A member of the RNA family "Molybdenum/Tungsten riboswitch aptamer (Moco RNA motif)" from Syntrophomonas zehnderi, 121 nucleotides long. Lineage of the source: Bacteria > Bacillati > Clostridia > Syntrophomonas > Syntrophomonas zehnderi. For this family Rfam cites "Identification of 22 candidate structured RNAs in bacteria using the CMfinder comparative genomics pipeline" (Weinberg et al., Nucleic Acids Res, 2007). Pairs were carried over by alignment from the consensus structure, which is taken from published work.
RNA sequence: AAAGAUAAAAAUCUUCGAGUUUGAUAGUCUACGGCGAUGAACGCUAUGAUGAUCAGGCCUAAGGGUUCAUUGGGAAACGAAUGAGCCUUCCAUUGUGAAAAGAAGAUGUUGAGGUCGGACA
Numbered sequence: 001a002a003a004g005a006u007a008a009a010a011a012u013c014u015u016c017g018a019g020u021u022u023g024a025u026a027g028u029c030u031a032c033g034g035c036g037a038u039g040a041a042c043g044c045u046a047u048g049a050u051g052a053u054c055a056g057g058c059c060u061a062a063g064g065g066u067u068c069a070u071u072g073g074g075a076a077a078c079g080a081a082u083g084a085g086c087c088u089u090c091c092a093u094u095g096u097g098a099a100a101a102g103a104a105g106a107u108g109u110u111g112a113g114g115u116c117g118g119a120c121a
Stems, first nucleotide, its partner, number of pairs: 003115001006112001011107006019058007027050003033045004063088009073078001089098002